This 64-nucleotide RNA sequence from Cuculus canorus belongs to the Rfam family "MAT2A 3'UTR stem loop F". NCBI's taxonomy places the organism under Eukaryota, Opisthokonta, Sauropsida, Coelurosauria, Cuculus.

[Rfam]
RNA sequence: CGGGAACGCGGCGAAUUUGGUCGGUGUGGUACAGAGAAGCCGACUUGUUUACCUGCCCGCCCCG
Numbered sequence: 001c002g003g004g005a006a007c008g009c010g011g012c013g014a015a016u017u018u019g020g021u022c023g024g025u026g027u028g029g030u031a032c033a034g035a036g037a038a039g040c041c042g043a044c045u046u047g048u049u050u051a052c053c054u055g056c057c058c059g060c061c062c063c064g
Stems, first nucleotide, its partner, number of pairs: 001064004008057001011056002014049003019045007026032002